[Rfam]
RNA sequence: UCAUUCCGUUGCACAGCAGUGGAAUAUUUCUCCUCUAUUUCUCCUUUGUAGAUUUUUGCACCUAUCCUUUGAUAGGUGCUUUUUU
Number, nucleotide and partner (000 for none) at each position: 001u000002c000003a025004u024005u023006c022007c021008g020009u019010u018011g017012c000013a000014c000015a000016g000017c011018a010019g009020u008021g007022g006023a005024a004025u003026a000027u000028u000029u000030c000031u000032c000033c000034u052035c051036u050037a049038u048039u000040u000041c000042u000043c000044c000045u000046u000047u000048g038049u037050a036051g035052a034053u000054u000055u000056u000057u000058g079059c078060a077061c076062c075063u074064a073065u072066c071067c000068u000069u000070u000071g066072a065073u064074a063075g062076g061077u060078g059079c058080u000081u000082u000083u000084u000085u000
The family of this 85-nucleotide sequence from Kingella denitrificans is "Neisseria metabolic switch regulator b (RcoF1/NgncR163)". The organism belongs to Kingella denitrificans, within Bacteria. The base pairs follow the family's consensus structure, which was predicted with RNAfold. Sibling sRNA described and independently named in three publications. NgncR163 is N. gonorrhoeae while the others are N. meningitidis RNAs. The family has 6 seed sequences and 65 matches in Rfam 15.1.